[Rfam]
RNA: Eukaryotic small subunit ribosomal RNA, nucleotides 697 to 1280
RNA sequence: GGUUCGUAGUUGAACUGUGGGCCACGUAGUUUUGUGCCGUGCCAGUCCCGUCCACCUCGGACGUGUUUUGACCCACGCCCUCGUGGCCCGUGAACACACUCAGAUACAAGAAACACGGGAGCGGUUCCUCCUCACUUUCACGCAUGUCAUGCAUGCGAGGGGGCGUCCGUGAAUUUUACUGUGACCAAAAAAGUGCGACCAAAGCAGUCUGCCGACUUGAAUUACAAAGCAUGGGAUAACGAAGCAUCAGCCCUGGGGCCACCGUUUCGGCUUUUGUUGGUUUUAGAAGUCCUUGGGAGAUUAUGGGGCCGCGUGCCUUGGGUCGGUGUUUCGUGUCUCAUUUUUGUGGCGCGCACAUUCGGCUCUUCGUGAUGUUUUUUUACAUUCAUUGCGACGCGCGGCUUCCAGGAAUGAAGGAGGGUAGUUCGGGGGAGAACGUACUGGUGCGUCAGAGGUGAAAUUCUUAGACCGCACCAAGACGAACUACAGCGAAGGCAUUCUUCAAGGAUACCUUCCUCAAUCAAGAACCAAAGUGUGGGGAUCAAAGAUGAUUAGAGACCAUUGUAGUCCACACUGCAAACCAU
Numbered sequence: 001g002g003u004u005c006g007u008a009g010u011u012g013a014a015c016u017g018u019g020g021g022c023c024a025c026g027u028a029g030u031u032u033u034g035u036g037c038c039g040u041g042c043c044a045g046u047c048c049c050g051u052c053c054a055c056c057u058c059g060g061a062c063g064u065g066u067u068u069u070g071a072c073c074c075a076c077g078c079c080c081u082c083g084u085g086g087c088c089c090g091u092g093a094a095c096a097c098a099c100u101c102a103g104a105u106a107c108a109a110g111a112a113a114c115a116c117g118g119g120a121g122c123g124g125u126u127c128c129u130c131c132u133c134a135c136u137u138u139c140a141c142g143c144a145u146g147u148c149a150u151g152c153a154u155g156c157g158a159g160g161g162g163g164c165g166u167c168c169g170u171g172a173a174u175u176u177u178a179c180u181g182u183g184a185c186c187a188a189a190a191a192a193g194u195g196c197g198a199c200c201a202a203a204g205c206a207g208u209c210u211g212c213c214g215a216c217u218u219g220a221a222u223u224a225c226a227a228a229g230c231a232u233g234g235g236a237u238a239a240c241g242a243a244g245c246a247u248c249a250g251c252c253c254u255g256g257g258g259c260c261a262c263c264g265u266u267u268c269g270g271c272u273u274u275u276g277u278u279g280g281u282u283u284u285a286g287a288a289g290u291c292c293u294u295g296g297g298a299g300a301u302u303a304u305g306g307g308g309c310c311g312c313g314u315g316c317c318u319u320g321g322g323u324c325g326g327u328g329u330u331u332c333g334u335g336u337c338u339c340a341u342u343u344u345u346g347u348g349g350c351g352c353g354c355a356c357a358u359u360c361g362g363c364u365c366u367u368c369g370u371g372a373u374g375u376u377u378u379u380u381u382a383c384a385u386u387c388a389u390u391g392c393g394a395c396g397c398g399c400g401g402c403u404u405c406c407a408g409g410a411a412u413g414a415a416g417g418a419g420g421g422u423a424g425u426u427c428g429g430g431g432g433a434g435a436a437c438g439u440a441c442u443g444g445u446g447c448g449u450c451a452g453a454g455g456u457g458a459a460a461u462u463c464u465u466a467g468a469c470c471g472c473a474c475c476a477a478g479a480c481g482a483a484c485u486a487c488a489g490c491g492a493a494g495g496c497a498u499u500c501u502u503c504a505a506g507g508a509u510a511c512c513u514u515c516c517u518c519a520a521u522c523a524a525g526a527a528c529c530a531a532a533g534u535g536u537g538g539g540g541a542u543c544a545a546a547g548a549u550g551a552u553u554a555g556a557g558a559c560c561a562u563u564g565u566a567g568u569c570c571a572c573a574c575u576g577c578a579a580a581c582c583a584u
Base pairs, nucleotide, nucleotide: 002528003527004526005525009521010520011519417515418514419513420512422510423509425508426507427506431503432502433501434500435499436498437481438480442476443475444474445473446472447471448470452463453462454461489496490495533574534573535572536571537570538569543567547563548562549561550560